[Rfam]
RNA sequence: UUCUAACUUCGCAUAAGGGAUAGGAAUGGCAUCCUUUGCUGGCGGUUCUUUUAGCCAGCAAAGAUAUAAUGGAUAGCCCGACCCCGA
Numbered sequence: 001u002u003c004u005a006a007c008u009u010c011g012c013a014u015a016a017g018g019g020a021u022a023g024g025a026a027u028g029g030c031a032u033c034c035u036u037u038g039c040u041g042g043c044g045g046u047u048c049u050u051u052u053a054g055c056c057a058g059c060a061a062a063g064a065u066a067u068a069a070u071g072g073a074u075a076g077c078c079c080g081a082c083c084c085c086g087a
Stems, first nucleotide, its partner, number of pairs: 017079003021075002026070002031065003037060007
A member of the RNA family "Flavo-1 RNA" from Flavobacterium succinicans, 87 nucleotides long. The match comes from Rfam's covariance-model search (58 bits). The source organism's lineage runs through Bacteria, Pseudomonadati, Bacteroidota, Flavobacteriaceae and Flavobacterium.